[Rfam]
RNA sequence: UUCGAUAAUGGCAAACCUAUUGAAAGGUAGGGACGCAAAACUACGGGCCUAAAGCACUGCUAUGGUAGCCGAGUCGCCGAAA
Numbered sequence: 001u002u003c004g005a006u007a008a009u010g011g012c013a014a015a016c017c018u019a020u021u022g023a024a025a026g027g028u029a030g031g032g033a034c035g036c037a038a039a040a041c042u043a044c045g046g047g048c049c050u051a052a053a054g055c056a057c058u059g060c061u062a063u064g065g066u067a068g069c070c071g072a073g074u075c076g077c078c079g080a081a082a
Base pairs, nucleotide, nucleotide: 001082003079004078011036012035016031017030018029019028020027021026034068040074041073042072044071045070046069047066048065049064
Dot-bracket structure: (.((......((...((((((....))))))..[))...(((.((((((..............))).]))))))...))..)